RNA sequence: AAGCGCAUAUGGCAAAACCGGAGCAAUCCGGCGACGCAAAACUAAAGGGACUUCGCUAAGAAGUCAGCCAGUUGCCCGG
Numbered sequence: 001a002a003g004c005g006c007a008u009a010u011g012g013c014a015a016a017a018c019c020g021g022a023g024c025a026a027u028c029c030g031g032c033g034a035c036g037c038a039a040a041a042c043u044a045a046a047g048g049g050a051c052u053u054c055g056c057u058a059a060g061a062a063g064u065c066a067g068c069c070a071g072u073u074g075c076c077c078g079g
Stems, first nucleotide, its partner, number of pairs: 012037002018031005040073004047069002049065006
Dot-bracket structure: ...........((....(((((....)))))....))..((((...((((((((.....))))))..))))))......
RNA: c-di-GMP-I riboswitch aptamer